Description: This 97-nucleotide RNA sequence from Thermincola carboxydiphila belongs to the Rfam family "Glycine riboswitch aptamer". Taxonomically the source falls in Thermincola carboxydiphila (Bacteria, Bacillati, Bacillota, Thermincolaceae). Clan: Glycine riboswitch clan. Rfam's curators write: This family represents the bacterial glycine riboswitch.

[Rfam]
RNA sequence: GGACAGACCUCUGGAGAGACUUGUGGUAAACAAGCGCCGAAGGAGCAACCCUUAUUGUAUAGGGCAAUCUCUCAGGCAAAAGGACAGAGAAAAGGGA
Number, nucleotide and partner (000 for none) at each position: 001g000002g000003a000004c000005a000006g000007a000008c000009c089010u088011c087012u086013g085014g000015a000016g000017a000018g000019a000020c034021u033022u032023g031024u000025g000026g000027u000028a000029a000030a000031c023032a022033a021034g020035c000036g077037c076038c075039g073040a072041a000042g000043g071044a070045g069046c000047a000048a000049c064050c063051c062052u061053u000054a000055u000056u000057g000058u000059a000060u000061a052062g051063g050064g049065c000066a000067a000068u000069c045070u044071c043072u040073c039074a000075g038076g037077c036078a000079a000080a000081a000082g000083g000084a000085c013086a012087g011088a010089g009090a000091a000092a000093a000094g000095g000096g000097a000

Record summary: A search with the family's covariance model found it, with a score of 72 bits.